[Rfam]
RNA sequence: AGUGAGGAUAGAGGUGCAAAGAUCAUGAGUACACAAUGUAAGGAGAAUGAGAUCCAUUGACCAUUGUGGAAAGGGGUAUUUGCCGAAGCAGAAAGAAUCUCAUGUUCUUGAAGCUGGUUCUGCUAUUGAAUAAAUGCAGAACUGUCGUAUAGGAAACUAUAUGGAGGGCUAUCUUACGC
Numbered sequence: 001a002g003u004g005a006g007g008a009u010a011g012a013g014g015u016g017c018a019a020a021g022a023u024c025a026u027g028a029g030u031a032c033a034c035a036a037u038g039u040a041a042g043g044a045g046a047a048u049g050a051g052a053u054c055c056a057u058u059g060a061c062c063a064u065u066g067u068g069g070a071a072a073g074g075g076g077u078a079u080u081u082g083c084c085g086a087a088g089c090a091g092a093a094a095g096a097a098u099c100u101c102a103u104g105u106u107c108u109u110g111a112a113g114c115u116g117g118u119u120c121u122g123c124u125a126u127u128g129a130a131u132a133a134a135u136g137c138a139g140a141a142c143u144g145u146c147g148u149a150u151a152g153g154a155a156a157c158u159a160u161a162u163g164g165a166g167g168g169c170u171a172u173c174u175u176a177c178g179c
Stems, first nucleotide, its partner, number of pairs: 006174006016083005022077003032068007087115003093109006116143008126133001145164007